A member of the RNA family "FMN riboswitch aptamer (RFN element)" from Chitinivorax tropicus, 144 nucleotides long. Pairs were carried over by alignment from the consensus structure, which is taken from published work. Gene Ontology term of the family: FMN binding.
Nucleotides: 144
Base pairs, nucleotide, nucleotide: 003142004141005140006139007138008137009136010135017029018028019027031124032123033114034113035061036060037059038058056112057111064090065089094110095109096108097107098106116127117126118125
Number, partner (000 for none) and nucleotide at each position: 001000g002000u003142g004141c005140g006139u007138c008137u009136u010135c011000a012000g013000g014000g015000c016000g017029g018028g019027g020000u021000g022000c023000a024000a025000u026000u027019c028018c029017c030000c031124a032123c033114c034113g035061g036060c037059g038058g039000u040000a041000u042000g043000g044000u045000u046000g047000c048000a049000a050000a051000a052000c053000c054000g055000a056112g057111c058038c059037c060036g061035c062000g063000a064090g065089c066000g067000c068000c069000c070000g071000g072000c073000c074000u075000g076000c077000g078000g079000g080000u081000c082000g083000g084000g085000g086000u087000c088000a089065g090064c091000a092000g093000a094110u095109c096108c097107g098106g099000u100000g101000a102000a103000a104000u105000g106098c107097c108096g109095g110094g111057g112056c113034c114033g115000a116127c117126g118125g119000u120000a121000u122000a123032g124031u125118c126117c127116g128000g129000a130000u131000g132000a133000a134000a135010g136009a137008a138007g139006a140005u141004g142003c143000a144000g